[Rfam]
RNA sequence: UUACAACCAAACGCUAUCUCCACCUCCACGUGGUGAUCGCUGGAAGUUAUUUCUUAAUGAAAAACUGCAGACGGGGAAGG
Numbered sequence: 001u002u003a004c005a006a007c008c009a010a011a012c013g014c015u016a017u018c019u020c021c022a023c024c025u026c027c028a029c030g031u032g033g034u035g036a037u038c039g040c041u042g043g044a045a046g047u048u049a050u051u052u053c054u055u056a057a058u059g060a061a062a063a064a065c066u067g068c069a070g071a072c073g074g075g076g077a078a079g080g
Base pairs, nucleotide, nucleotide: 014079015078017076018075019074020073022034023033024032045066046065047064048063050061051060053059